A member of the RNA family "CopA-like RNA" from Pantoea sp. Mhis, 88 nucleotides long. Its family is annotated with mRNA binding in the Gene Ontology. From the family's description: In several groups of bacterial plasmids, antisense RNAs regulate copy number through inhibition of replication initiator protein synthesis. These RNAs are characterised by a long hairpin structure interrupted by several unpaired residues or bulged loops. NCBI's taxonomy places the organism under Bacteria, Pseudomonadota, Gammaproteobacteria, Erwiniaceae, Pantoea. The family's RNA type in Rfam is antisense RNA. A search with the family's covariance model found it, with a score of 67 bits. A reference for the family is Nordgren et al. (2001), "Real time kinetic studies of the interaction between folded antisense and target RNAs using surface plasmon resonance", J Mol Biol.
RNA sequence: AUAGAGCAACAUGCUUCUAUACAGUUUUGGUGAGCCCCAUUAAUCUUCUAGGUCUCCAAACUCGGAAAGGUUAUUGGGGUUUUUACUU
Numbered sequence: 001a002u003a004g005a006g007c008a009a010c011a012u013g014c015u016u017c018u019a020u021a022c023a024g025u026u027u028u029g030g031u032g033a034g035c036c037c038c039a040u041u042a043a044u045c046u047u048c049u050a051g052g053u054c055u056c057c058a059a060a061c062u063c064g065g066a067a068a069g070g071u072u073a074u075u076g077g078g079g080u081u082u083u084u085a086c087u088u
Base pairs, nucleotide, nucleotide: 001020002019003018004017005016029087030086031085032082033081034080035079036078037077038076039075041073042072043071044070045069046068047067